[Rfam]
RNA sequence: UGCACUCUGUGGUAUCUGCACCCAGCAGUGUCUUCCUGAUCAGGUGUUCAAAAAGCAGUGCUGUAGCAUUUCAGCAGCUGGCACUGUUGGCUUUCCUGCAGACGUGCUGGUUAAACUUGGUAUUUCUGUUGAAACAGGU
Numbered sequence: 001u002g003c004a005c006u007c008u009g010u011g012g013u014a015u016c017u018g019c020a021c022c023c024a025g026c027a028g029u030g031u032c033u034u035c036c037u038g039a040u041c042a043g044g045u046g047u048u049c050a051a052a053a054a055g056c057a058g059u060g061c062u063g064u065a066g067c068a069u070u071u072c073a074g075c076a077g078c079u080g081g082c083a084c085u086g087u088u089g090g091c092u093u094u095c096c097u098g099c100a101g102a103c104g105u106g107c108u109g110g111u112u113a114a115a116c117u118u119g120g121u122a123u124u125u126c127u128g129u130u131g132a133a134a135c136a137g138g139u
Stems, first nucleotide, its partner, number of pairs: 002061005015054001017052001018047005024040001026038003064128003068124001070122001071120004080108005
RNA: Small nucleolar RNA SNORA8
Organism: Halcyon senegalensis